[Rfam]
RNA sequence: UGCCCUGGUUCAGUUCUCACAGCGCUGACACUGUCCAUUUCAAAGGUACAGUACUGUGAUAACUGAAGCCAGAUA
Numbered sequence: 001u002g003c004c005c006u007g008g009u010u011c012a013g014u015u016c017u018c019a020c021a022g023c024g025c026u027g028a029c030a031c032u033g034u035c036c037a038u039u040u041c042a043a044a045g046g047u048a049c050a051g052u053a054c055u056g057u058g059a060u061a062a063c064u065g066a067a068g069c070c071a072g073a074u075a
Base pairs, nucleotide, nucleotide: 011065012064013063014062015061017059018058019057020056021055022054024052025051027049030047031046032045
RNA: mir-101 microRNA precursor family
Organism: Conger conger